This 87-nucleotide sequence from Sideroxydans sp. CL21 belongs to the Rfam family "c-di-GMP-I riboswitch aptamer". A search with the family's covariance model found it, with a score of 73 bits.
[Rfam]
RNA sequence: AUCUGAAAACGGCAAACUGGUCAAAAGAUCAGGACGCAAAAUUACCGGUCUAAGGGGCUUCGGCGCUAUGACAGCGGGAUCACCAGA
Numbered sequence: 001a002u003c004u005g006a007a008a009a010c011g012g013c014a015a016a017c018u019g020g021u022c023a024a025a026a027g028a029u030c031a032g033g034a035c036g037c038a039a040a041a042u043u044a045c046c047g048g049u050c051u052a053a054g055g056g057g058c059u060u061c062g063g064c065g066c067u068a069u070g071a072c073a074g075c076g077g078g079a080u081c082a083c084c085a086g087a
Base pairs, nucleotide, nucleotide: 012037013036017032018031019030020029021028022027041080042079043078045077046076047075048072049071050070055066057064058063